[Rfam]
RNA sequence: GUAUUGUGGGGACCACCUCCCUGAGAGGUGUUGGGCAUUAGCCAGCGCAACGGCUUGCACGCGAGAUCUAGACCCCUUCGUGCAAACCUACUCAAGCAGCCGUUGCAGCAAGCCAAGCCACUUUUUUUG
Numbered sequence: 001g002u003a004u005u006g007u008g009g010g011g012a013c014c015a016c017c018u019c020c021c022u023g024a025g026a027g028g029u030g031u032u033g034g035g036c037a038u039u040a041g042c043c044a045g046c047g048c049a050a051c052g053g054c055u056u057g058c059a060c061g062c063g064a065g066a067u068c069u070a071g072a073c074c075c076c077u078u079c080g081u082g083c084a085a086a087c088c089u090a091c092u093c094a095a096g097c098a099g100c101c102g103u104u105g106c107a108g109c110a111a112g113c114c115a116a117g118c119c120a121c122u123u124u125u126u127u128u129g
Base pairs, nucleotide, nucleotide: 006121007120008119009118010114011113014030015029016028017027018026019025034043035042036041045109046108048105049104050103051102052101053100054099055098056084057083058082059081062080063079064078065077

The record is a 129-nucleotide RNA from Burkholderia vietnamiensis, which matches "Burkholderia sRNA 39" in Rfam. A reference for the family is Stubben et al. (2014), "Differential expression of small RNAs from Burkholderia thailandensis in response to varying environmental and stress conditions", BMC Genomics. Trans-encoded, exhibits differential expression profiles dependent on growth phase and cell stimuli, such as antbiotics and serum. It is annotated as a small RNA. Rfam's curators put it in the seed alignment. The family's consensus secondary structure was predicted with RNAfold.